Rfam assigns this 169-nucleotide RNA from Microbacterium thalassium to the family "Vibrio RNA AS7".
Identified by direct cloning an parallel sequencing experiments with 5S/tRNA depletion. Confirmed by Northern blot.
By type it is an antisense RNA.
RNA sequence: GGGGUCUGCAGCAGCAGGCGGCUGCGAUCGGUGAUCACACCGCCGAUGUGGUACGGCAGACCGCAGUUGGCGAACGAGACGUAGCCGCCCCGCUCGAACACGAUGAUCUCAGCGGCCUCAUCCAGGCGUCGCGCACGAGCGGCGACCGAUGCGCCUCCCGCGACUCCUC
Numbered sequence: 001g002g003g004g005u006c007u008g009c010a011g012c013a014g015c016a017g018g019c020g021g022c023u024g025c026g027a028u029c030g031g032u033g034a035u036c037a038c039a040c041c042g043c044c045g046a047u048g049u050g051g052u053a054c055g056g057c058a059g060a061c062c063g064c065a066g067u068u069g070g071c072g073a074a075c076g077a078g079a080c081g082u083a084g085c086c087g088c089c090c091c092g093c094u095c096g097a098a099c100a101c102g103a104u105g106a107u108c109u110c111a112g113c114g115g116c117c118u119c120a121u122c123c124a125g126g127c128g129u130c131g132c133g134c135a136c137g138a139g140c141g142g143c144g145a146c147c148g149a150u151g152c153g154c155c156u157c158c159c160g161c162g163a164c165u166c167c168u169c
Stems, first nucleotide, its partner, number of pairs: 001167006008161002011025005032056001035053001038050003061070002076154001084147001086144003092140005099133001101131002104128002107125001112121001114119001